This 383-nucleotide RNA from Desulfuromonas sp. AOP6 belongs to the Rfam family "Bacterial RNase P class A". A search with the family's covariance model found it, with a score of 306 bits. By type it is a ribozyme. A reference for the family is Brown (1999), "The Ribonuclease P Database", Nucleic Acids Res.
[Rfam]
Nucleotides: 383
Stems, first nucleotide, its partner, number of pairs: 001379008010370001012325007020039002023036005044367003048364005053225004060259004065221005070084005085099001086097004100216002105214002107210003122155002124151007163181006183205001184203008229282004239272006251263004289308001291306006
Number, partner (000 for none) and nucleotide at each position: 001379g002378g003377a004376g005375a006374a007373g008372g009000a010370c011000a012325g013324a014323u015322g016321a017320u018319c019000g020039c021038u022000g023036g024035c025034u026033c027032c028000u029000u030000c031000g032027g033026g034025a035024g036023c037000g038021g039020g040000a041000g042000g043000a044367a045366a046365g047000u048364c049363c050362g051361g052360g053225c054224u055223c056222c057000g058000c059000a060259g061258g062257g063256c064000a065221g066220g067219a068218u069217g070084g071083u072082c073081c074080c075000u076000a077000a078000c079000g080074g081073g082072g083071a084070c085099c086097g087096g088095g089094g090000g091000u092000g093000a094089c095088c096087c097086c098000a099085g100216g101215g102000a103000a104000a105214g106213u107210g108209c109208c110000a111000c112000a113000g114000a115000g116000a117000g118000g119000a120000g121000a122155c123154c124151g125150c126149c127148c128147g129146u130145c131000c132000g133000c134000g135000c136000u137000u138000c139000g140000g141000c142000g143000a144000a145130g146129a147128c148127g149126g150125g151124u152000a153000a154123g155122g156000g157000u158000g159000a160000a161000a162000g163181g164180g165179u166178g167177a168176g169000g170000u171000a172000a173000g174000a175000g176168c177167u178166c179165a180164c181163c182000a183205g184203u185202u186201c187200c188199g189198g190197c191196g192000g193000u194000g195000a196191c197190g198189u199188c200187g201186g202185a203184a204000g205183c206000u207000c208109g209108g210107u211000a212000a213106a214105c215101c216100c217069c218068a219067u220066c221065c222056g223055g224054a225053g226000c227000a228000a229282g230281a231280c232279c233000a234000a235000a236000u237000a238000g239272g240271g241270g242269a243268g244267c245000g246000u247000u248000u249000g250000a251263g252262g253261g254260c255000g256063g257062c258061c259060c260254g261253u262252c263251c264000g265000a266000a267244g268243c269242u270241c271240c272239c273000g274000g275000g276000u277000u278000c279232g280231g281230u282229u283000g284000c285000u286000u287000g288000a289308g290000a291306c292305u293304g294303u295302c296301g297000g298000c299000a300000a301296c302295g303294g304293c305292a306291g307000c308289c309000c310000u311000a312000g313000a314000g315000g316000a317000a318000u319018g320017a321016u322015c323014a324013u325012c326000a327000c328000c329000c330000u331000g332000c333000c334000g335000c336000g337000g338000g339000g340000a341000a342000c343000c344000g345000c346000c347000g348000c349000a350000g351000g352000g353000a354000a355000c356000a357000g358000a359000a360052c361051c362050c363049g364048g365046c366045u367044u368000a369000c370010g371000g372008c373007c374006u375005u376004c377003u378002c379001c380000a381000g382000c383000c
The organism belongs to Desulfuromonas, within Bacteria.